[Rfam]
RNA sequence: CCAACGGGACGGCCCGCUGGCUGAUUCAGGAGUGGGGACGGCCCU
Numbered sequence: 001c002c003a004a005c006g007g008g009a010c011g012g013c014c015c016g017c018u019g020g021c022u023g024a025u026u027c028a029g030g031a032g033u034g035g036g037g038a039c040g041g042c043c044c045u
Stems, first nucleotide, its partner, number of pairs: 001020003005016004034045004